Record summary:
The record is a 94-nucleotide RNA from Aliidiomarina haloalkalitolerans, which matches "t44 RNA" in Rfam. Rfam's curators write: This family consists of a number of bacterial RNA genes of between 135 and 170 bases in length. The t44 gene has been identified in several species of enteric bacteria but homologs have also been identified in Pseudomonas and Coxiella species. The t44 gene is found between the map and rpsB genes in all species in the full alignment apart from Shigella flexneri. A reference for the family is Tjaden et al. (2002), "Transcriptome analysis of Escherichia coli using high-density oligonucleotide probe arrays", Nucleic Acids Res.
RNA sequence: UAAACUUAACUUAAAUAACACACACAUAUCGACACAUCAUUGCGGGGUGCUUGAGUUUUCUCGGGUCGCAAUAUGGGAUAUGUGGAGGCCUAAC
Dot-bracket structure: ......................((((((((....(((.((((((....(((((........)))))))))))))).))))))))..........

A search with the family's covariance model found it, with a score of 80 bits. Lineage of the source: Bacteria > Pseudomonadati > Pseudomonadota > Alteromonadales > Aliidiomarina.